The record is a 115-nucleotide RNA sequence from Medicago truncatula, which matches "MIR2593 microRNA precursor family" in Rfam. Pairs were carried over by alignment from the consensus structure, which was predicted with RNAalifold. Rfam links the family to the GO terms RISC complex and miRNA-mediated post-transcriptional gene silencing. It scores 101 bits against the family's covariance model.
RNA sequence: UUAUAAGCAAAAUACUAUUUUUUAGGUUCAUUGAAUAAAUGAUGUAUGUGGUCUAUAUUGAUGACCACAUACAUCACUCAUUCAAUGAAUCUAAAAAGUAGUUUUUUGCUUAUAA
Dot-bracket structure: .((((((.((((..(((((((((((.((((((((((.(.(((((....((((...........))))....))))).).)))))))))).)))))))))))..)))).)))))).